[Rfam]
RNA sequence: UUCUAGAAAAGGCAAACUGCUUGAAAGAGUAGGACGCAAAGCAAAGGGUCUAAGGUUCUCAAACUACGAUCGCCUGGCUGCCAAG
Numbered sequence: 001u002u003c004u005a006g007a008a009a010a011g012g013c014a015a016a017c018u019g020c021u022u023g024a025a026a027g028a029g030u031a032g033g034a035c036g037c038a039a040a041g042c043a044a045a046g047g048g049u050c051u052a053a054g055g056u057u058c059u060c061a062a063a064c065u066a067c068g069a070u071c072g073c074c075u076g077g078c079u080g081c082c083a084a085g
Stems, first nucleotide, its partner, number of pairs: 012037002017032006040079003045075003048070003055064003

Shown here is an 85-nucleotide sequence from Oceanobacillus picturae, a member of the family "c-di-GMP-I riboswitch aptamer".
Rfam's curators write: GEMM was predicted in a large-scale screen for bacterial structured RNA regulatory elements.